[Rfam]
RNA sequence: UGCAGUUCUCAGGUGAUGCACCCAGAACCAGAGAGGAGGGAGUCUGAUUCUGGGGUGCAUCACCCAAGAACUGCC
Dot-bracket structure: .((.(((((..((((((.(((((((((.((((..........)))).)))).))))).))))))..))))).)).

mir-9223 microRNA precursor family: a 75-nucleotide sequence from Myotis brandtii. NCBI's taxonomy places the organism under Eukaryota, Vertebrata, Mammalia, Yangochiroptera, Myotis. A search with the family's covariance model found it, with a score of 56 bits.